[Rfam]
A member of the RNA family "MIR4371 microRNA precursor family" from Glycine max, 147 nucleotides long. NCBI's taxonomy places the organism under Eukaryota, Gunneridae, rosids, Fabaceae, Glycine subgen. Soja.

RNA sequence: UCGUUAAGUGAUGACAUGUUAGAUAGAAUGUCACAUCAUCACGCCUUGUCACAGACAAUUCAUUGCCUCAUCAACAACUUCAAUGACGUGUCAGUGACAAGGUGUGAUGAUGUGACACUCUGUCUGUCAUGUUAUCACUUAACAGAA
Numbered sequence: 001u002c003g004u005u006a007a008g009u010g011a012u013g014a015c016a017u018g019u020u021a022g023a024u025a026g027a028a029u030g031u032c033a034c035a036u037c038a039u040c041a042c043g044c045c046u047u048g049u050c051a052c053a054g055a056c057a058a059u060u061c062a063u064u065g066c067c068u069c070a071u072c073a074a075c076a077a078c079u080u081c082a083a084u085g086a087c088g089u090g091u092c093a094g095u096g097a098c099a100a101g102g103u104g105u106g107a108u109g110a111u112g113u114g115a116c117a118c119u120c121u122g123u124c125u126g127u128c129a130u131g132u133u134a135u136c137a138c139u140u141a142a143c144a145g146a147a
Stems, first nucleotide, its partner, number of pairs: 001145001003143016020126008029117018048098005054092004